[Rfam]
RNA sequence: CCCGGUCCGCCCGGGACGACAUGUGGUCGGCGGGCGUCGUCCGACGCCCGAGGGCGGGGGACCCGCCCGACCGCCGACUGAAUCGCAAG
Numbered sequence: 001c002c003c004g005g006u007c008c009g010c011c012c013g014g015g016a017c018g019a020c021a022u023g024u025g026g027u028c029g030g031c032g033g034g035c036g037u038c039g040u041c042c043g044a045c046g047c048c049c050g051a052g053g054g055c056g057g058g059g060g061a062c063c064c065g066c067c068c069g070a071c072c073g074c075c076g077a078c079u080g081a082a083u084c085g086c087a088a089g
Stems, first nucleotide, its partner, number of pairs: 001015005017085003025079009
Rfam assigns this 89-nucleotide RNA sequence from Candidatus Halobonum tyrrellensis to the family "eL15-Euryarchaeota ribosomal protein leader". For this family Rfam cites "Discovery of 20 novel ribosomal leader candidates in bacteria and archaea" (Eckert and Weinberg, BMC Microbiol, 2020). The sequence is in the family's curated seed alignment. Taxonomically the source falls in Candidatus Halobonum tyrrellensis (Archaea, Methanobacteriati, Haloferacaceae, Candidatus Halobonum). The family's RNA type in Rfam is cis-regulatory leader.